[Rfam]
RNA sequence: CCCGGCAAUGAAUUGCCGGGCUAUUAUCUUUCGUCCCUAACGGGACU
Numbered sequence: 001c002c003c004g005g006c007a008a009u010g011a012a013u014u015g016c017c018g019g020g021c022u023a024u025u026a027u028c029u030u031u032c033g034u035c036c037c038u039a040a041c042g043g044g045a046c047u
Stems, first nucleotide, its partner, number of pairs: 001020008033046005
RNA: Acido-Lenti-1 RNA